[Rfam]
RNA sequence: GGUGUAAAACGCAAACCAACCGAAAGGCUGGGACGCAAAGCCACGGGUCUAAAGCAUCCGCUAUGAUCGCCGGGCUGCCAAUC
Numbered sequence: 001g002g003u004g005u006a007a008a009a010c011g012c013a014a015a016c017c018a019a020c021c022g023a024a025a026g027g028c029u030g031g032g033a034c035g036c037a038a039a040g041c042c043a044c045g046g047g048u049c050u051a052a053a054g055c056a057u058c059c060g061c062u063a064u065g066a067u068c069g070c071c072g073g074g075c076u077g078c079c080a081a082u083c
Base pairs, nucleotide, nucleotide: 001083003080004079011036012035016031017030018029020027021026034069039076040075041074042073044072045071046070047067048066049065